[Rfam]
RNA sequence: UGAACUCAUGAGGCUCUCUCAAACAGAUGCGGGUUUCCCGCUUGAGAGAGCCGAGGUUUAGAGAAAGCUUUAAAAACCCACUUAGGUGAAUAGAGUUAGGU
Numbered sequence: 001u002g003a004a005c006u007c008a009u010g011a012g013g014c015u016c017u018c019u020c021a022a023a024c025a026g027a028u029g030c031g032g033g034u035u036u037c038c039c040g041c042u043u044g045a046g047a048g049a050g051c052c053g054a055g056g057u058u059u060a061g062a063g064a065a066a067g068c069u070u071u072a073a074a075a076a077c078c079c080a081c082u083u084a085g086g087u088g089a090a091u092a093g094a095g096u097u098a099g100g101u
Base pairs, nucleotide, nucleotide: 004058012052013051014050015049016048017047018046019045020044021043029041030040031039032038033037
Dot-bracket structure: ...(.......((((((((((.......(((((...))))).)))))))))).....)...........................................